RNA sequence: ACUGAGGACCAAGGAGUCUGAGUCUGACAGAGCAGGCCUUUGCUGAGCCCUCCUCCUAGGCAAAUGGGUGGAGAAGGCAGCCCUGAUUGGAGGAAACCAGAGGGUUGGUUGAGUUACGAGCCAGCAUUU
Numbered sequence: 001a002c003u004g005a006g007g008a009c010c011a012a013g014g015a016g017u018c019u020g021a022g023u024c025u026g027a028c029a030g031a032g033c034a035g036g037c038c039u040u041u042g043c044u045g046a047g048c049c050c051u052c053c054u055c056c057u058a059g060g061c062a063a064a065u066g067g068g069u070g071g072a073g074a075a076g077g078c079a080g081c082c083c084u085g086a087u088u089g090g091a092g093g094a095a096a097c098c099a100g101a102g103g104g105u106u107g108g109u110u111g112a113g114u115u116a117c118g119a120g121c122c123a124g125c126a127u128u129u
Base pairs, nucleotide, nucleotide: 002059003058004055005054006053007052008051016044018042020040021039022038024036025035066122067121068117069116076110077109078107079106080105081104082103083102084101088099089098090097
Small Cajal body specific RNA 4: a 129-nucleotide sequence from Microtus ochrogaster. Clan: SCARNA4 clan. Lineage of the source: Eukaryota > Bilateria > Teleostomi > Tetrapoda > Microtus. Rfam classes the family as a small Cajal body RNA. Rfam describes the family as follows. scaRNAs are a specific class of small nuclear RNAs which localise to the Cajal bodies and guide the modification of RNA polymerase II transcribed spliceosomal RNAs U1, U2, U4, U5 and U12. ACA26 belongs to the H/ACA box class of guide RNAs as it has the predicted hairpin-hinge-hairpin-tail structure, conserved H/ACA-box motifs and is found associated with GAR1.